[Rfam]
This 71-nucleotide sequence from Soboliphyme baturini belongs to the Rfam family "mir-87 microRNA precursor family". Taxonomically the source falls in Soboliphyme (Eukaryota, Opisthokonta, Bilateria, Ecdysozoa). Gene Ontology terms of the family: RISC complex and miRNA-mediated post-transcriptional gene silencing.
RNA sequence: CGCUUGUCGCCUGAAACAUUUGUCUCAGCCUUUGCAAGGAAAGGUGAGCAAAGUUUCAGGUGUGUUUACGA
Numbered sequence: 001c002g003c004u005u006g007u008c009g010c011c012u013g014a015a016a017c018a019u020u021u022g023u024c025u026c027a028g029c030c031u032u033u034g035c036a037a038g039g040a041a042a043g044g045u046g047a048g049c050a051a052a053g054u055u056u057c058a059g060g061u062g063u064g065u066u067u068a069c070g071a
Stems, first nucleotide, its partner, number of pairs: 002069001006065002008062007016054002019051002024048004029044005